RNA sequence: GAGUUGUUGAAUACGAGGCCGGAGCACUGUCUGAGAGUGCUAGAUUUCUCACAGUGAACCGGUCUCUUUUUCAGCUGCUUC
Numbered sequence: 001g002a003g004u005u006g007u008u009g010a011a012u013a014c015g016a017g018g019c020c021g022g023a024g025c026a027c028u029g030u031c032u033g034a035g036a037g038u039g040c041u042a043g044a045u046u047u048c049u050c051a052c053a054g055u056g057a058a059c060c061g062g063u064c065u066c067u068u069u070u071u072c073a074g075c076u077g078c079u080u081c
Stems, first nucleotide, its partner, number of pairs: 006075005015066007025056006033050003
RNA: mir-128 microRNA precursor family